Shown here is a 99-nucleotide RNA sequence from Lachnospiraceae bacterium KM106-2, a member of the family "NiCo (Nickel/Cobalt) riboswitch aptamer". The family is grouped with related families in Rfam's "NiCo_riboswitches".
Nucleotides: 099
Stems, first nucleotide, its partner, number of pairs: 010098004016093001018046003022040006049064005066090006
Number, partner (000 for none) and nucleotide at each position: 001000a002000c003000a004000g005000u006000a007000c008000a009000a010098a011097c012096u013095g014000a015000g016093c017000a018046g019045g020044c021000g022040a023039u024038g025037a026036a027035c028000c029000c030000a031000a032000a033000g034000g035027g036026u037025u038024u039023g040022u041000g042000g043000g044020g045019c046018c047000g048000g049064g050063c051062c052061a053060u054000u055000u056000a057000a058000a059000c060053a061052u062051g063050g064049c065000a066090g067089c068088a069087g070086a071085u072000a073000a074000g075000a076000a077000u078000u079000g080000a081000u082000a083000a084000c085071a086070u087069c088068u089067g090066u091000g092000g093016g094000a095013c096012a097011g098010u099000a
Rfam links the family to the GO terms cobalt ion binding and metal ion homeostasis. The match comes from Rfam's covariance-model search (84 bits). On this family, see Furukawa et al., Mol Cell 2015: "Bacterial riboswitches cooperatively bind Ni(2+) or Co(2+) ions and control expression of heavy metal transporters".